The record is an 87-nucleotide sequence from Pasteurella felis, which matches "RpsF leader" in Rfam. Conserved and widely distributed to many bacterial species RNA structure. The base pairs follow the family's consensus structure. By type it is a cis-regulatory leader. Its family is annotated with protein binding and negative regulation of translation in the Gene Ontology.
RNA sequence: GCUACAUUGAAUUUUCGUUCCUUGCUUCCGCAGAUUGGUGGCUGGUCUAACAGUCGGAGGCUGAUUAACCCGUAAGGAGCAGUAAUG
Numbered sequence: 001g002c003u004a005c006a007u008u009g010a011a012u013u014u015u016c017g018u019u020c021c022u023u024g025c026u027u028c029c030g031c032a033g034a035u036u037g038g039u040g041g042c043u044g045g046u047c048u049a050a051c052a053g054u055c056g057g058a059g060g061c062u063g064a065u066u067a068a069c070c071c072g073u074a075a076g077g078a079g080c081a082g083u084a085a086u087g
Stems, first nucleotide, its partner, number of pairs: 017080007024061006033047001